The family of this 132-nucleotide RNA from Leptonychotes weddellii is "Small nucleolar RNA SNORA63". The family has 8 seed sequences and 1,279 matches in Rfam 15.1. It is annotated as an H/ACA-box small nucleolar RNA. Taxonomically the source falls in Leptonychotes (Eukaryota, Eumetazoa, Craniata, Sarcopterygii). Rfam links the family to the GO terms RNA processing and nucleolus. The match comes from Rfam's covariance-model search (115 bits). E3 belongs to the H/ACA class of snoRNAs and is involved in the processing of eukaryotic pre-rRNA and has regions of complementarity to 18S rRNA. E3 is encoded in introns in the gene for protein synthesis initiation factor 4AII. The literature on the family includes a 1997 paper in Proc Natl Acad Sci U S A by Mishra and Eliceiri, "Three small nucleolar RNAs that are involved in ribosomal RNA precursor processing".
[Rfam]
RNA sequence: AAGCAGGAUUUAGACUCUAAUACAGCUGUUAAGUACGGCGUUGUCCUUCCCCCUGCUCAAAAUAAAGUUGCUUCUUAACUAUAACUGUCUGCUAUACUCCUGUAGCAGCCAGGGAUGCUUGGUCUCAUACAU
Numbered sequence: 001a002a003g004c005a006g007g008a009u010u011u012a013g014a015c016u017c018u019a020a021u022a023c024a025g026c027u028g029u030u031a032a033g034u035a036c037g038g039c040g041u042u043g044u045c046c047u048u049c050c051c052c053c054u055g056c057u058c059a060a061a062a063u064a065a066a067g068u069u070g071c072u073u074c075u076u077a078a079c080u081a082u083a084a085c086u087g088u089c090u091g092c093u094a095u096a097c098u099c100c101u102g103u104a105g106c107a108g109c110c111a112g113g114g115a116u117g118c119u120u121g122g123u124c125u126c127a128u129a130c131a132u
Stems, first nucleotide, its partner, number of pairs: 003056005018043004023038001025036001085112003089108004